[Rfam]
RNA sequence: UUCCAUGUAUGAUGAUACAAAUAAUUUACAGUUAUCCCUGUCUGAGAUAUAUCUGCUGAAAACAUGUAAUCUGACAUGGAA
Numbered sequence: 001u002u003c004c005a006u007g008u009a010u011g012a013u014g015a016u017a018c019a020a021a022u023a024a025u026u027u028a029c030a031g032u033u034a035u036c037c038c039u040g041u042c043u044g045a046g047a048u049a050u051a052u053c054u055g056c057u058g059a060a061a062a063c064a065u066g067u068a069a070u071c072u073g074a075c076a077u078g079g080a081a
Stems, first nucleotide, its partner, number of pairs: 001081007